[Rfam]
RNA sequence: UUUGAUGUGAAUUGAUUUAUAUUUGAAUACACUCGUAUAGAAGUGAUUAUUAUGAGAUGAUGUUGUUUGGACAG
Numbered sequence: 001u002u003u004g005a006u007g008u009g010a011a012u013u014g015a016u017u018u019a020u021a022u023u024u025g026a027a028u029a030c031a032c033u034c035g036u037a038u039a040g041a042a043g044u045g046a047u048u049a050u051u052a053u054g055a056g057a058u059g060a061u062g063u064u065g066u067u068u069g070g071a072c073a074g
Stems, first nucleotide, its partner, number of pairs: 011061004016056003021053002026048003030045004

Rfam assigns this 74-nucleotide RNA sequence from Medicago truncatula to the family "MIR5272 microRNA precursor family". The family's consensus secondary structure was predicted with RNAalifold. Lineage of the source: Eukaryota > Streptophytina > Embryophyta > Tracheophyta > Medicago.